[Rfam]
RNA sequence: UGGCCGUCGGGUCGAAGUUACGGGUGACGACGAGGUAGUUGCGGAUCGCGAUGGCGUGCAGGUUCUC
Numbered sequence: 001u002g003g004c005c006g007u008c009g010g011g012u013c014g015a016a017g018u019u020a021c022g023g024g025u026g027a028c029g030a031c032g033a034g035g036u037a038g039u040u041g042c043g044g045a046u047c048g049c050g051a052u053g054g055c056g057u058g059c060a061g062g063u064u065c066u067c
Base pairs, nucleotide, nucleotide: 004062005061008058009057011028012027015025034055036053037052039051040050041049042048043047
RNA: ASdes TB sRNA
Organism: Mycobacterium sp. shizuoka-1